[Rfam]
RNA sequence: GGGGGACUCGGCGGAAAAUAUGGUGGUAUACUACACAGUGAAUAGAUAUACCCGUAUAUUUUUCUGCCGAGCCCCU
Number, nucleotide and partner (000 for none) at each position: 001g000002g000003g074004g073005g072006a000007c071008u070009c069010g068011g067012c066013g065014g064015a063016a062017a061018a060019u000020a000021u000022g000023g000024u000025g052026g051027u050028a049029u048030a047031c045032u044033a043034c000035a000036c000037a000038g000039u000040g000041a000042a000043u033044a032045g031046a000047u030048a029049u028050a027051c026052c025053c000054g000055u000056a000057u000058a000059u000060u018061u017062u016063u015064c014065u013066g012067c011068c010069g009070a008071g007072c005073c004074c003075c000076u000
RNA: mir-55 microRNA precursor family
Organism: Caenorhabditis briggsae